Rfam assigns this 74-nucleotide sequence to the family "RAGATH-18 RNA".
Actinobacteria, Firmicutes, Fusobacteria, Thermotogae (1 example).
[Rfam]
RNA sequence: ACUGUGAAGUAUUAUACCAAAUGUAAGUAGCUUUGAAGUUAUUCAUUGCCAAAACAGAUACGUUGAAACAGUAA
Numbered sequence: 001a002c003u004g005u006g007a008a009g010u011a012u013u014a015u016a017c018c019a020a021a022u023g024u025a026a027g028u029a030g031c032u033u034u035g036a037a038g039u040u041a042u043u044c045a046u047u048g049c050c051a052a053a054a055c056a057g058a059u060a061c062g063u064u065g066a067a068a069c070a071g072u073a074a
Base pairs, nucleotide, nucleotide: 001072002071003070004069005068009061010060011059012058013057022056023055024054030049031048035044036043